The family of this 113-nucleotide RNA sequence from Castanea mollissima is "mir-395 microRNA precursor family".
[Rfam]
RNA sequence: AUGUCCCCUAGAGUUCCCCUGAACGCUUCACUGGGGACUCUCUUUAACAAGAGAGCACAUAUAUGUGUAUAUGUAAUCCUUACUGAAGUGUUUGGGGGAACUCCUGGUGUCAU
Numbered sequence: 001a002u003g004u005c006c007c008c009u010a011g012a013g014u015u016c017c018c019c020u021g022a023a024c025g026c027u028u029c030a031c032u033g034g035g036g037a038c039u040c041u042c043u044u045u046a047a048c049a050a051g052a053g054a055g056c057a058c059a060u061a062u063a064u065g066u067g068u069a070u071a072u073g074u075a076a077u078c079c080u081u082a083c084u085g086a087a088g089u090g091u092u093u094g095g096g097g098g099a100a101c102u103c104c105u106g107g108u109g110u111c112a113u
Stems, first nucleotide, its partner, number of pairs: 005109001007107002011103010022093002024090007032082006
Source information:
Rfam describes the family as follows. mir-395 was identified in both Arabidopsis thaliana and Oryza sativa computationally and was later experimentally verified. mir-395 is thought to target mRNAs coding for ATP sulphurylases. The source organism's lineage runs through Eukaryota, Streptophyta, Gunneridae, rosids and Castanea. On this family, see Jones-Rhoades and Bartel, Mol Cell 2004: "Computational Identification of Plant MicroRNAs and Their Targets, Including a Stress-Induced miRNA". A search with the family's covariance model found it, with a score of 74 bits.